[Rfam]
RNA sequence: UUGACAGAAGAGAGUGAGCACCCAGAGGCAGUUGCUAUAAAGUGUAUACCAAUACUUUUGCGUGCUCACUUCUCUCUCUGUCAG
Numbered sequence: 001u002u003g004a005c006a007g008a009a010g011a012g013a014g015u016g017a018g019c020a021c022c023c024a025g026a027g028g029c030a031g032u033u034g035c036u037a038u039a040a041a042g043u044g045u046a047u048a049c050c051a052a053u054a055c056u057u058u059u060g061c062g063u064g065c066u067c068a069c070u071u072c073u074c075u076c077u078c079u080g081u082c083a084g
Stems, first nucleotide, its partner, number of pairs: 001084008010074003013070009023060003
This 84-nucleotide RNA from Cucumis melo belongs to the Rfam family "mir-156 microRNA precursor family". Its family is annotated with miRNA-mediated post-transcriptional gene silencing and RISC complex in the Gene Ontology. Rfam describes the family as follows. This family represents the plant microRNA (miRNA) precursor mir-156. The source organism's lineage runs through Eukaryota, rosids, Cucurbitales, Cucurbitaceae and Cucumis.